A member of the RNA family "Small nucleolar RNA snoR99" from Phaseolus vulgaris, 105 nucleotides long. It is annotated as an H/ACA-box small nucleolar RNA.

RNA sequence: GUUCUUUAGGGAUGUACGAGUCUCUAACAUUCACUUCAUCCAUCUGUUUCACUUUGUCAGCUCUAUUUUCUUGUGUUUUGCUGAUCAUUGUAGGAUGGAAUAUUU
Numbered sequence: 001g002u003u004c005u006u007u008a009g010g011g012a013u014g015u016a017c018g019a020g021u022c023u024c025u026a027a028c029a030u031u032c033a034c035u036u037c038a039u040c041c042a043u044c045u046g047u048u049u050c051a052c053u054u055u056g057u058c059a060g061c062u063c064u065a066u067u068u069u070c071u072u073g074u075g076u077u078u079u080g081c082u083g084a085u086c087a088u089u090g091u092a093g094g095a096u097g098g099a100a101u102a103u104u105u
Base pairs, nucleotide, nucleotide: 039099040098041097042096043095044094056085057084058083059082060081061080
The organism belongs to Phaseolus, within Eukaryota.